[Rfam]
RNA sequence: AAGCUAUAUUAACAACCAUGGAAUCGCUAAGCAUUGGCUAUGGCGGUAAAUGCAAAAGCCAAACAAA
Number, nucleotide and partner (000 for none) at each position: 001a000002a000003g000004c000005u000006a000007u000008a000009u000010u000011a000012a000013c000014a000015a000016c000017c000018a000019u000020g000021g000022a000023a047024u046025c045026g044027c043028u042029a041030a000031g000032c000033a000034u000035u000036g000037g000038c000039u000040a000041u029042g028043g027044c026045g025046g024047u023048a000049a000050a000051u000052g000053c000054a000055a000056a000057a000058g000059c000060c000061a000062a000063a000064c000065a000066a000067a000
Rfam assigns this 67-nucleotide sequence from Bergeriella denitrificans to the family "porB RNA". NCBI's taxonomy places the organism under Bacteria, Pseudomonadati, Betaproteobacteria, Neisseriales, Bergeriella.